[Rfam]
RNA sequence: UCCUCCCCACAAAGGCGUGUUUUUGGUUCCUUGUCCAUGAACACGUAAGAGUCGGAGGCAAAGAAAUGUGGAUUUGCAGAGAUCUGGGACCUGCUUGCUCCCCGCAGGCUCCGGAUCAGCUGUCCCACAGAG
Numbered sequence: 001u002c003c004u005c006c007c008c009a010c011a012a013a014g015g016c017g018u019g020u021u022u023u024u025g026g027u028u029c030c031u032u033g034u035c036c037a038u039g040a041a042c043a044c045g046u047a048a049g050a051g052u053c054g055g056a057g058g059c060a061a062a063g064a065a066a067u068g069u070g071g072a073u074u075u076g077c078a079g080a081g082a083u084c085u086g087g088g089a090c091c092u093g094c095u096u097g098c099u100c101c102c103c104g105c106a107g108g109c110u111c112c113g114g115a116u117c118a119g120c121u122g123u124c125c126c127a128c129a130g131a132g
Stems, first nucleotide, its partner, number of pairs: 002058005016045007025031002070125003074122001093109006
Description:
The record is a 132-nucleotide RNA from Microtus ochrogaster, which matches "Small nucleolar RNA SNORA38" in Rfam. Lineage of the source: Eukaryota > Opisthokonta > Metazoa > Sarcopterygii > Microtus. Its family is annotated with nucleolus, RNA processing and Cajal body in the Gene Ontology.